[Rfam]
This 77-nucleotide RNA from Mariniplasma anaerobium belongs to the Rfam family "c-di-GMP-I riboswitch aptamer". NCBI's taxonomy places the organism under Bacteria, Bacillati, Mycoplasmatota, Acholeplasmatales, Mariniplasma. From the family's description: GEMM was predicted in a large-scale screen for bacterial structured RNA regulatory elements. The match comes from Rfam's covariance-model search (61 bits).
RNA sequence: UAAAAACAUUGGCAAAACUAGGGUAACCUAGUGACGCAAAGCUAUAGGGCCUUAAAUUAAGGUAGCCAGUUGCACUC
Numbered sequence: 001u002a003a004a005a006a007c008a009u010u011g012g013c014a015a016a017a018c019u020a021g022g023g024u025a026a027c028c029u030a031g032u033g034a035c036g037c038a039a040a041g042c043u044a045u046a047g048g049g050c051c052u053u054a055a056a057u058u059a060a061g062g063u064a065g066c067c068a069g070u071u072g073c074a075c076u077c
Stems, first nucleotide, its partner, number of pairs: 012037002017032006040071004047067002049063003